The family of this 77-nucleotide RNA sequence from Selaginella moellendorffii is "Small nucleolar RNA Z155". The literature on the family includes a 2003 paper in Nucleic Acids Res by Chen et al., "The high diversity of snoRNAs in plants: identification and comparative study of 120 snoRNA genes from Oryza sativa". Its family is annotated with RNA processing and nucleolus in the Gene Ontology. Lineage of the source: Eukaryota > Viridiplantae > Embryophyta > Lycopodiopsida > Selaginella.
[Rfam]
RNA sequence: GUGUGGGGUGAUGAUACAUUGAUUCAGACGCGAAUCGUAGUGGUGACCUGAAUCAGACUACAAUUAUCUGACCACGC
Numbered sequence: 001g002u003g004u005g006g007g008g009u010g011a012u013g014a015u016a017c018a019u020u021g022a023u024u025c026a027g028a029c030g031c032g033a034a035u036c037g038u039a040g041u042g043g044u045g046a047c048c049u050g051a052a053u054c055a056g057a058c059u060a061c062a063a064u065u066a067u068c069u070g071a072c073c074a075c076g077c
Stems, first nucleotide, its partner, number of pairs: 001077006

The family has 8 seed sequences and 429 matches in Rfam 15.1.